RNA sequence: GGCUGGUCCCAAGGUAGUAAAUUAUCUCAAUUGAUUUUUCACAGUCAGUUAUGGAUCAAAUUCCUUGUUCUACUUUCUCCCCUUCUCACUACUGCACUUGACUAGUCUUAA
Numbered sequence: 001g002g003c004u005g006g007u008c009c010c011a012a013g014g015u016a017g018u019a020a021a022u023u024a025u026c027u028c029a030a031u032u033g034a035u036u037u038u039u040c041a042c043a044g045u046c047a048g049u050u051a052u053g054g055a056u057c058a059a060a061u062u063c064c065u066u067g068u069u070c071u072a073c074u075u076u077c078u079c080c081c082c083u084u085c086u087c088a089c090u091a092c093u094g095c096a097c098u099u100g101a102c103u104a105g106u107c108u109u110a111a
Stems, first nucleotide, its partner, number of pairs: 001107008011098001014095002016090003020086001043075002047071002
About this RNA: Rfam assigns this 111-nucleotide RNA sequence from Aotus nancymaae to the family "Y RNA". Rfam describes the family as follows. Y RNAs are components of the Ro ribonucleoprotein particle (Ro RNP), in association with Ro60 and La proteins. A search with the family's covariance model found it, with a score of 56 bits. The base pairs follow the family's consensus structure, which is taken from published work. Taxonomically the source falls in Aotus (Eukaryota, Craniata, Primates, Platyrrhini). A reference for the family is Teunissen et al. (2000), "Conserved features of Y RNAs: a comparison of experimentally derived secondary structures", Nucleic Acids Res.